[Rfam]
RNA: Pseudomonas sRNA P14
RNA sequence: CUGGGCAGUUUUUAUACAAACCUCCAAAAGAUUAGCCAAAAUAGAUACGGCACAAGAAUUUUUUUUGCUUCUUGCGCUACGUCAGUUUACUUACUACAAGUAAUGAGUAGUAUGUACGCCGGCUAUCAGCUCACCCUGAGAAAG
Numbered sequence: 001c002u003g004g005g006c007a008g009u010u011u012u013u014a015u016a017c018a019a020a021c022c023u024c025c026a027a028a029a030g031a032u033u034a035g036c037c038a039a040a041a042u043a044g045a046u047a048c049g050g051c052a053c054a055a056g057a058a059u060u061u062u063u064u065u066u067g068c069u070u071c072u073u074g075c076g077c078u079a080c081g082u083c084a085g086u087u088u089a090c091u092u093a094c095u096a097c098a099a100g101u102a103a104u105g106a107g108u109a110g111u112a113u114g115u116a117c118g119c120c121g122g123c124u125a126u127c128a129g130c131u132c133a134c135c136c137u138g139a140g141a142a143a144g
Stems, first nucleotide, its partner, number of pairs: 035077002039073002043069002046067002049064002052061001081123003085119002088116003092112006099104001127144001131140001